[Rfam]
RNA: mir-160 microRNA precursor family
Organism: Malus domestica
RNA sequence: AUGUGCCUGGCUCCCUGUAUGCCAUUUGCAGAGUUCCACCGAACAUCGAUGGCCUCCGUGGAUGGCGUAUGAGGAGCCAUGCAUAU
Number, nucleotide and partner (000 for none) at each position: 001a086002u085003g084004u083005g082006c081007c000008u079009g078010g077011c076012u075013c074014c073015c000016u071017g070018u069019a068020u067021g066022c065023c064024a063025u000026u000027u060028g059029c058030a000031g000032a000033g000034u000035u000036c000037c000038a000039c000040c000041g000042a000043a000044c000045a000046u000047c000048g000049a000050u000051g000052g000053c000054c000055u000056c000057c000058g029059u028060g027061g000062a000063u024064g023065g022066c021067g020068u019069a018070u017071g016072a000073g014074g013075a012076g011077c010078c009079a008080u000081g006082c005083a004084u003085a002086u001